RNA sequence: UUAUAUAUCGUGAAAUCAAUUCGUAUAUCCUCAAAGAUAUGGUUUGAGGGUUUCUACAAGGAGCCACAAAUUCCUGACUACGAAUAGGGUGCCGAAGCAU
Numbered sequence: 001u002u003a004u005a006u007a008u009c010g011u012g013a014a015a016u017c018a019a020u021u022c023g024u025a026u027a028u029c030c031u032c033a034a035a036g037a038u039a040u041g042g043u044u045u046g047a048g049g050g051u052u053u054c055u056a057c058a059a060g061g062a063g064c065c066a067c068a069a070a071u072u073c074c075u076g077a078c079u080a081c082g083a084a085u086a087g088g089g090u091g092c093c094g095a096a097g098c099a100u
Stems, first nucleotide, its partner, number of pairs: 019085007029049007059075005

Purine riboswitch aptamer: a 100-nucleotide RNA from Paenibacillus sp. CAA11. It scores 70 bits against the family's covariance model. The family's consensus secondary structure is taken from published work. NCBI's taxonomy places the organism under Bacteria, Bacillota, Bacilli, Paenibacillaceae, Paenibacillus.